[Rfam]
RNA: GRIK4 3 prime UTR element
RNA sequence: UAGCCCCGGCGGGCCAGGACGCUUGGAGGCCAGGUGGGGAGGCGGGCGGGGCUGGGCAGGCGCCGCUGUCUGCCGGGAACCUGGACUUGUACA
Numbered sequence: 001u002a003g004c005c006c007c008g009g010c011g012g013g014c015c016a017g018g019a020c021g022c023u024u025g026g027a028g029g030c031c032a033g034g035u036g037g038g039g040a041g042g043c044g045g046g047c048g049g050g051g052c053u054g055g056g057c058a059g060g061c062g063c064c065g066c067u068g069u070c071u072g073c074c075g076g077g078a079a080c081c082u083g084g085a086c087u088u089g090u091a092c093a
Stems, first nucleotide, its partner, number of pairs: 003052005011031002014028001